[Rfam]
RNA sequence: AAAAAAGCAGGGCCUUGUUGCCUUUUGUGAACUAGGUUCUCGUAAGCUUCAGGAAAAUUACUUGUGCAUUGUUCUUGGGUGAAUGUCUGGUUGUUAAUGGUGCCUUAAGGUUCAGUAAAUAAUGAUACAUUU
Numbered sequence: 001a002a003a004a005a006a007g008c009a010g011g012g013c014c015u016u017g018u019u020g021c022c023u024u025u026u027g028u029g030a031a032c033u034a035g036g037u038u039c040u041c042g043u044a045a046g047c048u049u050c051a052g053g054a055a056a057a058u059u060a061c062u063u064g065u066g067c068a069u070u071g072u073u074c075u076u077g078g079g080u081g082a083a084u085g086u087c088u089g090g091u092u093g094u095u096a097a098u099g100g101u102g103c104c105u106u107a108a109g110g111u112u113c114a115g116u117a118a119a120u121a122a123u124g125a126u127a128c129a130u131u132u
Base pairs, nucleotide, nucleotide: 005049006048007047011038012037014035015034017032067124068123069122070121071120072119073118080114081113082112083111084110086108
RNA: Small nucleolar RNA snoR74
Organism: Hibiscus syriacus